[Rfam]
RNA: Lysine riboswitch aptamer
Organism: Dysosmobacter segnis
RNA sequence: ACGCAUGAUAGAGGCGCGGCUGAUAAGAGUAACCAUCCGGCAGACAGGCAUAGAGGAUGGGGAAAGGGUUAGCCGCCGAAGGGCCGUACCGCUGCCUGGCGGGUCGGUGCCUGGGCCGUCGGAAAACAUCCGCCGGACUGUCGCCCGGAAACGGGCGGGGCGCUGUCAUGGAU
Numbered sequence: 001a002c003g004c005a006u007g008a009u010a011g012a013g014g015c016g017c018g019g020c021u022g023a024u025a026a027g028a029g030u031a032a033c034c035a036u037c038c039g040g041c042a043g044a045c046a047g048g049c050a051u052a053g054a055g056g057a058u059g060g061g062g063a064a065a066g067g068g069u070u071a072g073c074c075g076c077c078g079a080a081g082g083g084c085c086g087u088a089c090c091g092c093u094g095c096c097u098g099g100c101g102g103g104u105c106g107g108u109g110c111c112u113g114g115g116c117c118g119u120c121g122g123a124a125a126a127c128a129u130c131c132g133c134c135g136g137a138c139u140g141u142c143g144c145c146c147g148g149a150a151a152c153g154g155g156c157g158g159g160g161c162g163c164u165g166u167c168a169u170g171g172a173u
Stems, first nucleotide, its partner, number of pairs: 006168006016076009033060006080112003085107001088104003113139002116136003120132004141158007